[Rfam]
Shown here is a 48-nucleotide RNA from Manganibacter manganicus, a member of the family "Guanidine-II riboswitch aptamer (mini-ykkC)". NCBI's taxonomy places the organism under Bacteria, Pseudomonadati, Pseudomonadota, Alphaproteobacteria, Manganibacter. The family's consensus secondary structure is taken from published work. Its family is annotated with regulation of gene expression in the Gene Ontology.
RNA sequence: GCGCGGGGACGACCCUGCAUUUUUGUCAAAAAGGACGGGACGACCCGC
Number, nucleotide and partner (000 for none) at each position: 001g020002c000003g018004c017005g016006g015007g014008g013009a000010c000011g000012a000013c008014c007015c006016u005017g004018c003019a000020u001021u000022u000023u000024u000025g000026u000027c000028a000029a000030a000031a000032a000033g000034g000035a000036c047037g046038g045039g044040a000041c000042g000043a000044c039045c038046c037047g036048c000